[Rfam]
RNA sequence: AUCCAUUCCGUGGGAGAGAGCAGGAACACCUGCCGCCGAAGGCGCAAACCCACCCGAAAACGCUCAGGCAAAAGGACCGCGGAAUCAGU
Numbered sequence: 001a002u003c004c005a006u007u008c009c010g011u012g013g014g015a016g017a018g019a020g021c022a023g024g025a026a027c028a029c030c031u032g033c034c035g036c037c038g039a040a041g042g043c044g045c046a047a048a049c050c051c052a053c054c055c056g057a058a059a060a061c062g063c064u065c066a067g068g069c070a071a072a073a074g075g076a077c078c079g080c081g082g083a084a085u086c087a088g089u
Stems, first nucleotide, its partner, number of pairs: 006084008020033004035069003038065002042063003049056001

The record is an 89-nucleotide RNA sequence from Azonexus hydrophilus, which matches "Glycine riboswitch aptamer" in Rfam. The source organism's lineage runs through Bacteria, Pseudomonadota, Betaproteobacteria, Azonexaceae and Azonexus. The pairing is the family consensus, mapped onto this sequence. Gene Ontology term of the family: glycine biosynthetic process. The match comes from Rfam's covariance-model search (68 bits). Rfam's curators write: This family represents the bacterial glycine riboswitch. Glycine riboswitches usually consist of two metabolite-binding aptamers domains with similar structures in tandem. The aptamers cooperatively bind glycine to regulate the expression of downstream genes. In Bacillus subtilis, this riboswitch is found upstream of the gcvT operon which controls glycine degradation.